[Rfam]
RNA: permuted transfer-messenger RNA
RNA sequence: GGUUGUAAUUCCGGCGAGCCGGAGACGUUCUGGACGGGGGUUCGAUUCCCCCCAGCUCCACCAGAAGGGAAUGUUCAUCAGUUUGCGUUUUCUUCUGAUGGGGCUGACCUGGUCUCGACAGGGCGGGCAAGGGUUAGCAGGCAACCCGAGAGGCGACGGACGUAAUCCGCGCAAAACCACAAACGCCAACGAUGAGCGUUUCGCACUGGCCGCUUAA
Numbered sequence: 001g002g003u004u005g006u007a008a009u010u011c012c013g014g015c016g017a018g019c020c021g022g023a024g025a026c027g028u029u030c031u032g033g034a035c036g037g038g039g040g041u042u043c044g045a046u047u048c049c050c051c052c053c054a055g056c057u058c059c060a061c062c063a064g065a066a067g068g069g070a071a072u073g074u075u076c077a078u079c080a081g082u083u084u085g086c087g088u089u090u091u092c093u094u095c096u097g098a099u100g101g102g103g104c105u106g107a108c109c110u111g112g113u114c115u116c117g118a119c120a121g122g123g124c125g126g127g128c129a130a131g132g133g134u135u136a137g138c139a140g141g142c143a144a145c146c147c148g149a150g151a152g153g154c155g156a157c158g159g160a161c162g163u164a165a166u167c168c169g170c171g172c173a174a175a176a177c178c179a180c181a182a183a184c185g186c187c188a189a190c191g192a193u194g195a196g197c198g199u200u201u202c203g204c205a206c207u208g209g210c211c212g213c214u215u216a217a
Stems, first nucleotide, its partner, number of pairs: 001146005016134001026125003030121003036052005053106007147162002